[Rfam]
RNA sequence: GAUAAAACAGGUGAAAAACCUGUUCGCCGUAAACCCAAGGUUUCCUGGGUAAAGGUAAUCUUCCCAGGGUUAGUCGGUCCCUAAGGCGAGGGCGAAAGCCGUAGCCGAUGGAAAACGGGUUAAUAUUCCCGUACUUGCGCGAGUGUGCGAUGGAGGGACGCAGGAAGGUAGGCAGGCCGGCUGUUGGCUUAGCCGGUGCAAGCAGGUAGGCUUGAGGGUAGGCAAAUCCGCCCUCUUCAAGGCCGAGACGCGAGUCCGUGACCGCAAGGUCUGAAGCUGUUGAGCCUCUACUGCCUAGAAAAGCUCCUAAGUUUAGCGCGUGCGAACCGUACCGGAAACCAACACAGGUGGGUGGGGUGAAUAACCCAAGGCGCU
Numbered sequence: 001g002a003u004a005a006a007a008c009a010g011g012u013g014a015a016a017a018a019c020c021u022g023u024u025c026g027c028c029g030u031a032a033a034c035c036c037a038a039g040g041u042u043u044c045c046u047g048g049g050u051a052a053a054g055g056u057a058a059u060c061u062u063c064c065c066a067g068g069g070u071u072a073g074u075c076g077g078u079c080c081c082u083a084a085g086g087c088g089a090g091g092g093c094g095a096a097a098g099c100c101g102u103a104g105c106c107g108a109u110g111g112a113a114a115a116c117g118g119g120u121u122a123a124u125a126u127u128c129c130c131g132u133a134c135u136u137g138c139g140c141g142a143g144u145g146u147g148c149g150a151u152g153g154a155g156g157g158a159c160g161c162a163g164g165a166a167g168g169u170a171g172g173c174a175g176g177c178c179g180g181c182u183g184u185u186g187g188c189u190u191a192g193c194c195g196g197u198g199c200a201a202g203c204a205g206g207u208a209g210g211c212u213u214g215a216g217g218g219u220a221g222g223c224a225a226a227u228c229c230g231c232c233c234u235c236u237u238c239a240a241g242g243c244c245g246a247g248a249c250g251c252g253a254g255u256c257c258g259u260g261a262c263c264g265c266a267a268g269g270u271c272u273g274a275a276g277c278u279g280u281u282g283a284g285c286c287u288c289u290a291c292u293g294c295c296u297a298g299a300a301a302a303g304c305u306c307c308u309a310a311g312u313u314u315a316g317c318g319c320g321u322g323c324g325a326a327c328c329g330u331a332c333c334g335g336a337a338a339c340c341a342a343c344a345c346a347g348g349u350g351g352g353u354g355g356g357g358u359g360a361a362u363a364a365c366c367c368a369a370g371g372c373g374c375u
Stems, first nucleotide, its partner, number of pairs: 006024006025373004033353004039333002044068006053061002075329004080111002085106003089102001091100003115132005135325007143317002147312002152307004160294004166287003171281005176197006198256001202251002209244003214235006221229002260271004339348002355367004